[Rfam]
RNA sequence: CCAUCUGGCAUCCUAGGUGGGAUGCCGUGGGUCCUCCCUUGUGUCUGUGGUGGUGGGAUCCUGUGGCCAUAUUUUCCUUGUGGCCUGGCC
Numbered sequence: 001c002c003a004u005c006u007g008g009c010a011u012c013c014u015a016g017g018u019g020g021g022a023u024g025c026c027g028u029g030g031g032u033c034c035u036c037c038c039u040u041g042u043g044u045c046u047g048u049g050g051u052g053g054u055g056g057g058a059u060c061c062u063g064u065g066g067c068c069a070u071a072u073u074u075u076c077c078u079u080g081u082g083g084c085c086u087g088g089c090c
Stems, first nucleotide, its partner, number of pairs: 005088004011083002013080001015078003019073002022070002024067008033053002036050002038047001